[Rfam]
RNA sequence: CAUCCCUAUGAAGACCAUGUUCCGAAAUUAAAGUAGUGGCCUGAUCUUUAUUGAUGAGUUCUGAUUCUGAGGGAUA
Numbered sequence: 001c002a003u004c005c006c007u008a009u010g011a012a013g014a015c016c017a018u019g020u021u022c023c024g025a026a027a028u029u030a031a032a033g034u035a036g037u038g039g040c041c042u043g044a045u046c047u048u049u050a051u052u053g054a055u056g057a058g059u060u061c062u063g064a065u066u067c068u069g070a071g072g073g074a075u076a
Base pairs, nucleotide, nucleotide: 002075003074004073005072006071

The record is a 76-nucleotide RNA from Macleaya cordata, which matches "Small nucleolar RNA R21" in Rfam. The match comes from Rfam's covariance-model search (50 bits). NCBI's taxonomy places the organism under Eukaryota, Embryophyta, Magnoliopsida, Ranunculales, Macleaya. The literature on the family includes a 2001 paper in J Mol Biol by Barneche et al., "Identification of 66 box C/D snoRNAs in Arabidopsis thaliana: extensive gene duplications generated multiple isoforms predicting new ribosomal RNA 2'-O-methylation sites". The family has 6 seed sequences and 472 matches in Rfam 15.1.